[Rfam]
RNA sequence: UCAUAACGAAAAGCGCCUGGACUGCUCUUUUACGGACGAAGCAUAGGAGCAGUUGACGAGGAGGAGGUUCAUCGAGAAAUCGGCGGAUGCCUCCCGGUUGCACGUCACAACCGAAAAUGCAGCCUUAAACCAUGAAGGCGACUUCAUGAACAAAAGUCUGCAUCAUGGCGUAA
Numbered sequence: 001u002c003a004u005a006a007c008g009a010a011a012a013g014c015g016c017c018u019g020g021a022c023u024g025c026u027c028u029u030u031u032a033c034g035g036a037c038g039a040a041g042c043a044u045a046g047g048a049g050c051a052g053u054u055g056a057c058g059a060g061g062a063g064g065a066g067g068u069u070c071a072u073c074g075a076g077a078a079a080u081c082g083g084c085g086g087a088u089g090c091c092u093c094c095c096g097g098u099u100g101c102a103c104g105u106c107a108c109a110a111c112c113g114a115a116a117a118u119g120c121a122g123c124c125u126u127a128a129a130c131c132a133u134g135a136a137g138g139c140g141a142c143u144u145c146a147u148g149a150a151c152a153a154a155a156g157u158c159u160g161c162a163u164c165a166u167g168g169c170g171u172a173a
Stems, first nucleotide, its partner, number of pairs: 020054008029045001063094005072083004095113006117163006131148007
The record is a 173-nucleotide sequence from Alteribacillus persepolensis, which matches "glmS glucosamine-6-phosphate activated ribozyme aptamer" in Rfam. The source organism's lineage runs through Bacteria, Bacillati, Caryophanales, Bacillaceae and Alteribacillus. Gene Ontology terms of the family: regulation of gene expression and catalytic activity. About the family: This entry contains a glucosamine-6-phosphate activated ribozyme that is found in the mRNA for GlmS. GlmS is an enzyme that uses fructose-6-phosphate and glutamine to generate glucosamine-6-phosphate. The ribozyme catalyses self cleavage of the glmS mRNA that is thought to regulate GlmS activity. By type it is a riboswitch.